Alphaproteobacterial sRNA ar35: a 139-nucleotide sequence from Rhizobium sp. RU36D. The match comes from Rfam's covariance-model search (60 bits). NCBI's taxonomy places the organism under Bacteria, Pseudomonadati, Pseudomonadota, Hyphomicrobiales, Rhizobium. A reference for the family is del Val et al. (2012), "A survey of sRNA families in alpha-proteobacteria", RNA Biol.
[Rfam]
RNA sequence: AGAUCGAUCCAUCAGCUGCACGGGAACUCAGGUUCCAGGUUGCAGCAGUCGAUCACUCGGUUCCCCUCUGACCACGGAUGUACUGGCAGAGGUGUCGAACCGGGGAGAAAAAGGUCGGGUUUCCCCGGCCUUUUUGUUU
Number, nucleotide and partner (000 for none) at each position: 001a000002g000003a053004u052005c051006g050007a049008u048009c000010c000011a000012u000013c000014a000015g000016c045017u044018g043019c042020a041021c000022g000023g000024g000025a000026a000027c000028u000029c000030a000031g000032g000033u000034u000035c000036c000037a000038g000039g000040u000041u020042g019043c018044a017045g016046c000047a000048g008049u007050c006051g005052a004053u003054c000055a000056c104057u103058c102059g101060g100061u099062u098063c094064c000065c092066c091067u000068c000069u088070g087071a000072c086073c085074a084075c000076g000077g000078a000079u000080g000081u000082a000083c000084u074085g073086g072087c070088a069089g000090a000091g066092g065093u000094g063095u000096c000097g000098a062099a061100c060101c059102g058103g057104g056105g138106a137107g000108a135109a134110a133111a132112a131113g130114g129115u128116c127117g126118g125119g000120u000121u000122u000123c000124c000125c118126c117127g116128g115129c114130c113131u112132u111133u110134u109135u108136g000137u106138u105139u000
The base pairs follow the family's consensus structure.